A member of the RNA family "Ribosomal protein L20 leader" from Halalkalibacter hemicellulosilyticus, 115 nucleotides long. Pairs were carried over by alignment from the consensus structure, which was predicted with CMfinder. The source organism's lineage runs through Bacteria, Bacillati, Bacilli, Bacillaceae and Halalkalibacter hemicellulosilyticus. This family is a putative r-protein leader autoregulatory structure found in B. subtilis and other low-GC Gram-positive bacteria.
RNA sequence: CUAGGCAAGAAGAAGCGCCCGCUUCUCACCUGAUCGACAAACGGUUGGCAGGUAUGAACGUUUCAUGUUAGAUGGACAAAGUGGGGGCGUAGUAUGCCCUCGCUUUUUUAUUUUG
Numbered sequence: 001c002u003a004g005g006c007a008a009g010a011a012g013a014a015g016c017g018c019c020c021g022c023u024u025c026u027c028a029c030c031u032g033a034u035c036g037a038c039a040a041a042c043g044g045u046u047g048g049c050a051g052g053u054a055u056g057a058a059c060g061u062u063u064c065a066u067g068u069u070a071g072a073u074g075g076a077c078a079a080a081g082u083g084g085g086g087g088c089g090u091a092g093u094a095u096g097c098c099c100u101c102g103c104u105u106u107u108u109u110a111u112u113u114u115g
Base pairs, nucleotide, nucleotide: 011026012025013024014023015022016021028053029052030051034048035047036046037045038044082102083101084100085099086098087097088096089095090094